[Rfam]
RNA sequence: GCGAACGAGUGCCGCGCGGCCUCUGCCCGGACGCGGACCCUGACGUACUUCCCCGACGCCAGGUGCCGAGGUUCGGUCAGAGACCACGAGGCAUUCGUCUCCGGCA
Numbered sequence: 001g002c003g004a005a006c007g008a009g010u011g012c013c014g015c016g017c018g019g020c021c022u023c024u025g026c027c028c029g030g031a032c033g034c035g036g037a038c039c040c041u042g043a044c045g046u047a048c049u050u051c052c053c054c055g056a057c058g059c060c061a062g063g064u065g066c067c068g069a070g071g072u073u074c075g076g077u078c079a080g081a082g083a084c085c086a087c088g089a090g091g092c093a094u095u096c097g098u099c100u101c102c103g104g105c106a
Stems, first nucleotide, its partner, number of pairs: 010093004015088002018085002021082005027076006034068003039063004044058003
This 106-nucleotide RNA sequence from Nocardia sp. CS682 belongs to the Rfam family "mraW RNA". A search with the family's covariance model found it, with a score of 64 bits. By type it is a cis-regulatory element.